[Rfam]
RNA sequence: CUCCCCGAAAUGUUUUUAGGAACAGCGUCGGGAAUUGUAUGAUGGAGGUAGAGCUACCGAUAGGACUAGGGGGAGUCACAUCCUACCAAAUCCUGACGAACUCCGAAUGCCAUUAUACAGAACCGGCAGUGAGGGCUUGGGUGCUAAGGUCCAAGUCCGAGAGGGAAAGAACCCAGACCUUCCGCUAAGGUCCCUAAAUCUAGAUUAAGUUGAACAAAGGUGGUCCAGUUGCAGAGACAGCCAGGAGGUUAGCUUGGAAGCAGCUAUUCCUUUAAAGAGUGCGUAACAGCUCACUGGUCGAGCGACAGGGCGUCGAUAAUAAUCGGGCAUCAAAUCUAGUACCGAAGCGAAGGAUUGGCAGUUUACUGCCAGUGGUAGGGGAGCAUUCCAACGACAGUGAAGAUCAGGCGUCAGCCUGGUUGGAGUUUUUGGAAAAGCAAAU
Numbered sequence: 001c002u003c004c005c006c007g008a009a010a011u012g013u014u015u016u017u018a019g020g021a022a023c024a025g026c027g028u029c030g031g032g033a034a035u036u037g038u039a040u041g042a043u044g045g046a047g048g049u050a051g052a053g054c055u056a057c058c059g060a061u062a063g064g065a066c067u068a069g070g071g072g073g074a075g076u077c078a079c080a081u082c083c084u085a086c087c088a089a090a091u092c093c094u095g096a097c098g099a100a101c102u103c104c105g106a107a108u109g110c111c112a113u114u115a116u117a118c119a120g121a122a123c124c125g126g127c128a129g130u131g132a133g134g135g136c137u138u139g140g141g142u143g144c145u146a147a148g149g150u151c152c153a154a155g156u157c158c159g160a161g162a163g164g165g166a167a168a169g170a171a172c173c174c175a176g177a178c179c180u181u182c183c184g185c186u187a188a189g190g191u192c193c194c195u196a197a198a199u200c201u202a203g204a205u206u207a208a209g210u211u212g213a214a215c216a217a218a219g220g221u222g223g224u225c226c227a228g229u230u231g232c233a234g235a236g237a238c239a240g241c242c243a244g245g246a247g248g249u250u251a252g253c254u255u256g257g258a259a260g261c262a263g264c265u266a267u268u269c270c271u272u273u274a275a276a277g278a279g280u281g282c283g284u285a286a287c288a289g290c291u292c293a294c295u296g297g298u299c300g301a302g303c304g305a306c307a308g309g310g311c312g313u314c315g316a317u318a319a320u321a322a323u324c325g326g327g328c329a330u331c332a333a334a335u336c337u338a339g340u341a342c343c344g345a346a347g348c349g350a351a352g353g354a355u356u357g358g359c360a361g362u363u364u365a366c367u368g369c370c371a372g373u374g375g376u377a378g379g380g381g382a383g384c385a386u387u388c389c390a391a392c393g394a395c396a397g398u399g400a401a402g403a404u405c406a407g408g409c410g411u412c413a414g415c416c417u418g419g420u421u422g423g424a425g426u427u428u429u430u431g432g433a434a435a436a437g438c439a440a441a442u
Stems, first nucleotide, its partner, number of pairs: 001383006011024005026129001027127005036121001037118009051104001052102002058098002062094004069087002071084004133158010163174003178353004183349003189343003198340001200339006219314003223311004228306005240298005246271003251265003272276001277292001281290002354373008384437001386434006393427003402421008
Dot-bracket structure: ((((((....(((((....))))).((((((....((((((((((.....(((....((..((((...((((((......)))).))...))))..))..)).).....)))))))))..).))))).)...((((((((((......))))))))))....(((......)))...((((.(((...(((......(.((((((.............(((.((((.(((((.......(((((.(((..(((.........)))...)))(...)(...((......)).).)))))...))))).)))))))...................))))))))))...)))))))((((((((....))))))))....))))))(.((((((.(((......((((((((....))))))))...))).))))))..).....

Bacterial large subunit ribosomal RNA: a 442-nucleotide part of an RNA from Algoriphagus machipongonensis. Pairs were carried over by alignment from the consensus structure, which is taken from published work. It scores 2738 bits against the family's covariance model.